[Rfam]
RNA sequence: CAGCUCGAGUUUCUCUUCAAUCACGCACAAAUCUUUCGCCUUUUACUAAAGAUUUCCGUGGGGAGGAAUUAUUGUGAGUUUUGUUUAUUUUUGGGUGCUCUGCUAUCUGCAGAGCU
Numbered sequence: 001c002a003g004c005u006c007g008a009g010u011u012u013c014u015c016u017u018c019a020a021u022c023a024c025g026c027a028c029a030a031a032u033c034u035u036u037c038g039c040c041u042u043u044u045a046c047u048a049a050a051g052a053u054u055u056c057c058g059u060g061g062g063g064a065g066g067a068a069u070u071a072u073u074g075u076g077a078g079u080u081u082u083g084u085u086u087a088u089u090u091u092u093g094g095g096u097g098c099u100c101u102g103c104u105a106u107c108u109g110c111a112g113a114g115c116u
Base pairs, nucleotide, nucleotide: 003079004078005077006076009069010068011067012066013065014064015063016062017061018060019059029055030054031053032052033051034050035049036048095116097115098114099113100112101111102110
RNA: U5 spliceosomal RNA
Organism: Danio rerio